[Rfam]
Small nucleolar RNA SNORA72: a 132-nucleotide RNA sequence from Dipodomys ordii. Pairs were carried over by alignment from the consensus structure, which was predicted with PFOLD. A search with the family's covariance model found it, with a score of 128 bits. Rfam classes the family as an H/ACA-box small nucleolar RNA. NCBI's taxonomy places the organism under Eukaryota, Bilateria, Deuterostomia, Euarchontoglires, Dipodomys. U72 is a member of the H/ACA class of snoRNAs. The snoRNA gene is located in intron 4 of the ribosomal L30 protein gene in human, mouse and chicken.
RNA sequence: CUGCGAAUAUUCUCACUGUAUUGAUUUUGUAAUAAUCGGCACAGGCUAAACAUUCUCUGCACUAAGAACAUGCAUGUGUCCCCAGACCUAGGUCUUUCCCUAGGCCUGUUUUUAUAAAUGCUGGUGAUAAAC
Numbered sequence: 001c002u003g004c005g006a007a008u009a010u011u012c013u014c015a016c017u018g019u020a021u022u023g024a025u026u027u028u029g030u031a032a033u034a035a036u037c038g039g040c041a042c043a044g045g046c047u048a049a050a051c052a053u054u055c056u057c058u059g060c061a062c063u064a065a066g067a068a069c070a071u072g073c074a075u076g077u078g079u080c081c082c083c084a085g086a087c088c089u090a091g092g093u094c095u096u097u098c099c100c101u102a103g104g105c106c107u108g109u110u111u112u113u114a115u116a117a118a119u120g121c122u123g124g125u126g127a128u129a130a131a132c
Stems, first nucleotide, its partner, number of pairs: 003057001005055001016044004021039006067125001069123002072121002083108003087104005